[Rfam]
RNA sequence: UCUGCGGAACGCUUCCUUGUGGUCUCACAAGGAACAACUCGUGUCAAUGUCCUUUUCCGUUAAGCGAGGAACGAGUAGGAAAAGGAAACGUUCACCAGUCGGAACGAAUGGGAAUAGAACGUUUAAUUGACUCGUGUUGAGUGCAGCAGA
Numbered sequence: 001u002c003u004g005c006g007g008a009a010c011g012c013u014u015c016c017u018u019g020u021g022g023u024c025u026c027a028c029a030a031g032g033a034a035c036a037a038c039u040c041g042u043g044u045c046a047a048u049g050u051c052c053u054u055u056u057c058c059g060u061u062a063a064g065c066g067a068g069g070a071a072c073g074a075g076u077a078g079g080a081a082a083a084g085g086a087a088a089c090g091u092u093c094a095c096c097a098g099u100c101g102g103a104a105c106g107a108a109u110g111g112g113a114a115u116a117g118a119a120c121g122u123u124u125a126a127u128u129g130a131c132u133c134g135u136g137u138u139g140a141g142u143g144c145a146g147c148a149g150a
Base pairs, nucleotide, nucleotide: 001150002149003148004147005146009142010141013034014033015032016031017030018029019028020027021026035139036138037137038136040134041133043131044130045129046128047127048126052085053084057079058078087123088122089121090120091119092118095111096110097109